RNA sequence: UCCCAUAUGGUCUAGAGGUCAGGAUUCCUGGUUUUCACCCAGGUGGCCCGGGUUCAAUUCCCGGUAUGGGAA
Numbered sequence: 001u002c003c004c005a006u007a008u009g010g011u012c013u014a015g016a017g018g019u020c021a022g023g024a025u026u027c028c029u030g031g032u033u034u035u036c037a038c039c040c041a042g043g044u045g046g047c048c049c050g051g052g053u054u055c056a057a058u059u060c061c062c063g064g065u066a067u068g069g070g071a072a
Base pairs, nucleotide, nucleotide: 001071002070003069004068005067006066007065010025011024012023013022027043028042029041030040031039048064049063050062051061052060